The record is a 120-nucleotide sequence from Thorsellia anophelis, which matches "t44 RNA" in Rfam. The base pairs follow the family's consensus structure, which was predicted with LocARNA. The source organism's lineage runs through Bacteria, Pseudomonadati, Pseudomonadota, Thorsellia and Thorsellia anophelis. A reference for the family is Tjaden et al. (2002), "Transcriptome analysis of Escherichia coli using high-density oligonucleotide probe arrays", Nucleic Acids Res. This family consists of a number of bacterial RNA genes of between 135 and 170 bases in length. The t44 gene has been identified in several species of enteric bacteria but homologs have also been identified in Pseudomonas and Coxiella species. A search with the family's covariance model found it, with a score of 67 bits.

RNA sequence: GUUUACAUGUGUAAAUACACACAUGCAUCGACACAAUAGCCGGGGUGCCAUGAUUUUAUCAAGUUUAUCUUAAAUAAGAUAAAAACUAGGUCGGUCUAUUGGGAUGUAUGGAGGCAAAAC
Numbered sequence: 001g002u003u004u005a006c007a008u009g010u011g012u013a014a015a016u017a018c019a020c021a022c023a024u025g026c027a028u029c030g031a032c033a034c035a036a037u038a039g040c041c042g043g044g045g046u047g048c049c050a051u052g053a054u055u056u057u058a059u060c061a062a063g064u065u066u067a068u069c070u071u072a073a074a075u076a077a078g079a080u081a082a083a084a085a086c087u088a089g090g091u092c093g094g095u096c097u098a099u100u101g102g103g104a105u106g107u108a109u110g111g112a113g114g115c116a117a118a119a120c
Base pairs, nucleotide, nucleotide: 022110023109024108025107026106027105028104029103034101035100036099037098038097039095040094041093042092047091048090049089